[Rfam]
A member of the RNA family "tRNA" from Babesia microti, 72 nucleotides long.
The family's RNA type in Rfam is transfer RNA.
Pairs were carried over by alignment from the consensus structure, which is taken from published work.
Gene Ontology term of the family: triplet codon-amino acid adaptor activity.
RNA sequence: GCGUUAGUAGUCCAACGGUUAGGAUUCCUGCCUUCCAAGCAGGUGACCCGGGUUCGACUCCCGGCUAACGCA
Numbered sequence: 001g002c003g004u005u006a007g008u009a010g011u012c013c014a015a016c017g018g019u020u021a022g023g024a025u026u027c028c029u030g031c032c033u034u035c036c037a038a039g040c041a042g043g044u045g046a047c048c049c050g051g052g053u054u055c056g057a058c059u060c061c062c063g064g065c066u067a068a069c070g071c072a
Stems, first nucleotide, its partner, number of pairs: 001071007010025004027043005048064005